RNA sequence: GGUUUGCAGGCAGUGUAGUUAGCUGAUUGUCUGCAGAAUUCCACAAUCACUAACUUCACUGCCACCAAAAC
Numbered sequence: 001g002g003u004u005u006g007c008a009g010g011c012a013g014u015g016u017a018g019u020u021a022g023c024u025g026a027u028u029g030u031c032u033g034c035a036g037a038a039u040u041c042c043a044c045a046a047u048c049a050c051u052a053a054c055u056u057c058a059c060u061g062c063c064a065c066c067a068a069a070a071c
Stems, first nucleotide, its partner, number of pairs: 003069004009063002012060004017055006024049007